[Rfam]
This 51-nucleotide RNA from Polerovirus CLDV belongs to the Rfam family "Exoribonuclease-resistant RNA (xrRNA) plant-infecting virus (class 3)".
The family's consensus secondary structure is taken from published work.
Rfam links the family to the GO term viral RNA genome replication.
From the family's description: Exoribonuclease-resistant RNA (xrRNA) plant-infecting virus (class 3) is a ncRNA that was reported in Plant viruses.
For this family Rfam cites "The pseudoknot structure of a viral RNA reveals a conserved mechanism for programmed exoribonuclease resistance" (Gezelle et al., bioRxiv [Preprint], 2024).
RNA sequence: GAGCUAGCUCUUAAUCUUGUUGCAUUAGAGAGAAGCUUAAAGUCAAGAUCA
Numbered sequence: 001g002a003g004c005u006a007g008c009u010c011u012u013a014a015u016c017u018u019g020u021u022g023c024a025u026u027a028g029a030g031a032g033a034a035g036c037u038u039a040a041a042g043u044c045a046a047g048a049u050c051a
Stems, first nucleotide, its partner, number of pairs: 001038004008032002011030001012027002015048005